[Rfam]
RNA sequence: GUUUAACGGUGUAUGGAUGGUGUUCAGCACCAAGGACAGGUGAGUUUGUCUGUGUGUGGAUGAUGCUCAGCACCAAGGACAGGCAUGCUUACCU
Numbered sequence: 001g002u003u004u005a006a007c008g009g010u011g012u013a014u015g016g017a018u019g020g021u022g023u024u025c026a027g028c029a030c031c032a033a034g035g036a037c038a039g040g041u042g043a044g045u046u047u048g049u050c051u052g053u054g055u056g057u058g059g060a061u062g063a064u065g066c067u068c069a070g071c072a073c074c075a076a077g078g079a080c081a082g083g084c085a086u087g088c089u090u091a092c093c094u
Stems, first nucleotide, its partner, number of pairs: 004085001007082001009080002018075007026067004031062002034055001036053007